[Rfam]
RNA sequence: GUCACAUUCAGAUAUGUUUGAUAUUCUUGGUCGUAGUUGCGGCGCGAUAUUCAACCAAGAAUCGAACAUAUACUCAAUGGGCA
Numbered sequence: 001g002u003c004a005c006a007u008u009c010a011g012a013u014a015u016g017u018u019u020g021a022u023a024u025u026c027u028u029g030g031u032c033g034u035a036g037u038u039g040c041g042g043c044g045c046g047a048u049a050u051u052c053a054a055c056c057a058a059g060a061a062u063c064g065a066a067c068a069u070a071u072a073c074u075c076a077a078u079g080g081g082c083a
Stems, first nucleotide, its partner, number of pairs: 005079004012071011024059002029056003033052001
RNA: mir-190 microRNA precursor family